[Rfam]
RNA sequence: GCUUGGGUUUGGAUUGAUGGCAGCAGCCCCAUCUCCCUGUGUAUCUCAUAGUGCCCAUGCCAGAGCAAACUGUGGCCUUGAACCAUUGCCCGGCCUCUGCCUGCAGGCUACAGGCACUGAGGCAGAUUGCACAGUG
Numbered sequence: 001g002c003u004u005g006g007g008u009u010u011g012g013a014u015u016g017a018u019g020g021c022a023g024c025a026g027c028c029c030c031a032u033c034u035c036c037c038u039g040u041g042u043a044u045c046u047c048a049u050a051g052u053g054c055c056c057a058u059g060c061c062a063g064a065g066c067a068a069a070c071u072g073u074g075g076c077c078u079u080g081a082a083c084c085a086u087u088g089c090c091c092g093g094c095c096u097c098u099g100c101c102u103g104c105a106g107g108c109u110a111c112a113g114g115c116a117c118u119g120a121g122g123c124a125g126a127u128u129g130c131a132c133a134g135u136g
Base pairs, nucleotide, nucleotide: 001060002059004057005056006055007054008053015051017049018048019047020046022044025040029039073129074128075127077125078124084119085118089114090113092109093108094107095106096105
The family of this 136-nucleotide sequence from Myotis myotis is "Small nucleolar RNA SNORA42/SNORA80 family".
A search with the family's covariance model found it, with a score of 95 bits.
The members of this family belong to the H/ACA class of snoRNAs that guide the sites of modification of uridines to pseudouridines. Human ACA42 (SNORA42) was cloned from HeLa cells by immunoprecipitation with anti-GAR1 antibody. Its is predicted to guide the pseudouridylation of residues U109 and U572 of 18S rRNA. ACA42 shares the same host gene with ACA26, ACA46, ACA50. This family also includes mammalian snoRNA ACA67 (SNORA80) which was identified by computational screening and its expression in mouse experimentally verified by Northern blot and primer extension analysis. ACA67 is proposed to guide the pseudouridylation of the same 18S rRNA residues as ACA42.
Its family is annotated with nucleolus and RNA processing in the Gene Ontology.